[Rfam]
RNA sequence: AAAAAAAUUGAGGGACAAUAUGUGUGUUUCUUGAUUGAGAAGAGCAGCUGAGGUAGAGUGAAAAGGCCGAGUCAUCGUUUCGUUCGUCAGCUUAUAAAUUGGCGUUUCGAUUGUUUCUCGUCUACAU
Numbered sequence: 001a002a003a004a005a006a007a008u009u010g011a012g013g014g015a016c017a018a019u020a021u022g023u024g025u026g027u028u029u030c031u032u033g034a035u036u037g038a039g040a041a042g043a044g045c046a047g048c049u050g051a052g053g054u055a056g057a058g059u060g061a062a063a064a065g066g067c068c069g070a071g072u073c074a075u076c077g078u079u080u081c082g083u084u085c086g087u088c089a090g091c092u093u094a095u096a097a098a099u100u101g102g103c104g105u106u107u108c109g110a111u112u113g114u115u116u117c118u119c120g121u122c123u124a125c126a127u
Stems, first nucleotide, its partner, number of pairs: 006036012065123002068120004074111004085104005092097001
This 127-nucleotide RNA from Malus baccata belongs to the Rfam family "Small nucleolar RNA snoR111". It is annotated as an H/ACA-box small nucleolar RNA. For this family Rfam cites "Experimental RNomics: identification of 140 candidates for small non-messenger RNAs in the plant Arabidopsis thaliana" (Marker et al., Curr Biol, 2002). The organism belongs to Malus, within Eukaryota. Rfam links the family to the GO terms RNA processing and nucleolus.